[Rfam]
RNA sequence: AUCUUAUCCAGAGUAGCUGAGGGACGGGCCCUAUGACGCUCGACAACCGGCAUUUUCCAUUAGAAUGCAUCGGUGUCAAUUCCUGCAGGAUAAUUAAUUUUAUCCUGGAAGAUAAGAU
Number, nucleotide and partner (000 for none) at each position: 001a118002u117003c116004u115005u114006a113007u112008c111009c000010a000011g000012a000013g041014u000015a040016g039017c038018u000019g000020a000021g031022g030023g029024a000025c085026g084027g083028g082029c023030c022031c021032u000033a000034u000035g000036a000037c000038g017039c016040u015041c013042g077043a076044c075045a074046a000047c073048c072049g000050g068051c067052a066053u065054u064055u063056u000057c000058c000059a000060u000061u000062a000063g055064a054065a053066u052067g051068c050069a000070u000071c000072g048073g047074u045075g044076u043077c042078a000079a000080u000081u110082c028083c027084u026085g025086c107087a106088g105089g104090a103091u102092a101093a100094u000095u000096a000097a000098u000099u000100u093101u092102a091103u090104c089105c088106u087107g086108g000109a000110a081111g008112a007113u006114a005115a004116g003117a002118u001
Description:
Shown here is a 118-nucleotide RNA sequence from Tepidanaerobacter acetatoxydans, a member of the family "SAM riboswitch aptamer (S box leader)".